[Rfam]
This 169-nucleotide RNA belongs to the Rfam family "RT-16 RNA". By type it is a small RNA. The sequence is in the family's curated seed alignment.
RNA sequence: UUGAGCCUUGCCAUCGUUCCUCUACAAAGGAUUUUGGAGAAGUGCUUGGGAGUUACACGCUUUUUCACUACGGUUUUAUUCUAAUCAGAAUGAAAUCAUAAAAUACAGCUCCGACUUGAUGCUUCGCACUGAAGGGGCAGUGAAUUCAUGAGUGAAAAGGCUAAUUGCG
Number, nucleotide and partner (000 for none) at each position: 001u049002u048003g047004a046005g045006c044007c042008u041009u040010g000011c037012c036013a000014u000015c000016g000017u000018u000019c000020c000021u000022c000023u000024a000025c000026a000027a000028a000029g000030g000031a000032u000033u000034u000035u000036g012037g011038a000039g000040a009041a008042g007043u000044g006045c005046u004047u003048g002049g001050g000051a000052g000053u000054u000055a000056c000057a000058c000059g161060c160061u159062u158063u157064u156065u155066c154067a153068c152069u000070a000071c000072g000073g000074u000075u148076u000077u000078a145079u144080u143081c142082u000083a000084a000085u000086c000087a000088g000089a000090a000091u000092g000093a000094a000095a000096u000097c000098a000099u000100a000101a000102a000103a000104u000105a000106c000107a000108g138109c137110u136111c135112c134113g000114a000115c131116u000117u000118g000119a000120u000121g000122c000123u000124u000125c000126g000127c000128a000129c000130u000131g115132a000133a000134g112135g111136g110137g109138c108139a000140g000141u000142g081143a080144a079145u078146u000147c000148a075149u000150g000151a000152g068153u067154g066155a065156a064157a063158a062159g061160g060161c059162u000163a000164a000165u000166u000167g000168c000169g000